[Rfam]
RNA sequence: AGCCGCGCGGUGAGCACAAAGCGAACUAUUCUUUCGCCUUUUACUAAAGAAUACCGUGUGCGCGCCGCAAUCUGCGGCUUACGCUUAUUUUUGGAGGGUUCUUUUCAUUUUGUGAAGAA
Numbered sequence: 001a002g003c004c005g006c007g008c009g010g011u012g013a014g015c016a017c018a019a020a021g022c023g024a025a026c027u028a029u030u031c032u033u034u035c036g037c038c039u040u041u042u043a044c045u046a047a048a049g050a051a052u053a054c055c056g057u058g059u060g061c062g063c064g065c066c067g068c069a070a071u072c073u074g075c076g077g078c079u080u081a082c083g084c085u086u087a088u089u090u091u092u093g094g095a096g097g098g099u100u101c102u103u104u105u106c107a108u109u110u111u112g113u114g115a116a117g118a119a
Base pairs, nucleotide, nucleotide: 003077004076005075006074008067009066010065011064012063014061015060016059017058018057027053028052029051030050031049032048033047034046102118103117104116105115106114
RNA: U5 spliceosomal RNA